[Rfam]
RNA sequence: CACGACACAACGACGAACAACUUGGAUGGAGGCGGGGGACCCAACCGGUCCGCCGAAAAGCUAACGGACCUGGAGCCUUCGGGCUCCUUGGGGUGAAGCCGUCGUCGUCACCGACGAUGCCGGCCGGGCGACCUCUCCAGCCCGAACCCGACAGCUGACCUCGCGGGCGCCGAAGAGAGGACCU
Numbered sequence: 001c002a003c004g005a006c007a008c009a010a011c012g013a014c015g016a017a018c019a020a021c022u023u024g025g026a027u028g029g030a031g032g033c034g035g036g037g038g039a040c041c042c043a044a045c046c047g048g049u050c051c052g053c054c055g056a057a058a059a060g061c062u063a064a065c066g067g068a069c070c071u072g073g074a075g076c077c078u079u080c081g082g083g084c085u086c087c088u089u090g091g092g093g094u095g096a097a098g099c100c101g102u103c104g105u106c107g108u109c110a111c112c113g114a115c116g117a118u119g120c121c122g123g124c125c126g127g128g129c130g131a132c133c134u135c136u137c138c139a140g141c142c143c144g145a146a147c148c149c150g151a152c153a154g155c156u157g158a159c160c161u162c163g164c165g166g167g168c169g170c171c172g173a174a175g176a177g178a179g180g181a182c183c184u
Base pairs, nucleotide, nucleotide: 011169012168014166018031032164033163034162035161036160037159042090043089091149092148093147099123100122101121126143127142128141129140
Dot-bracket structure: ..........((.(...(............)((((((....((.............................................))(((.....(((...................)))..((((..........))))...))).........)))))).).))...............
Shown here is a 184-nucleotide RNA sequence from Mycolicibacterium holsaticum, a member of the family "c-di-AMP riboswitch aptamer (ydaO/yuaA leader)". The source organism's lineage runs through Bacteria, Bacillati, Actinomycetes, Mycobacteriales and Mycobacterium (subgen. Mycolicibacterium). The match comes from Rfam's covariance-model search (65 bits).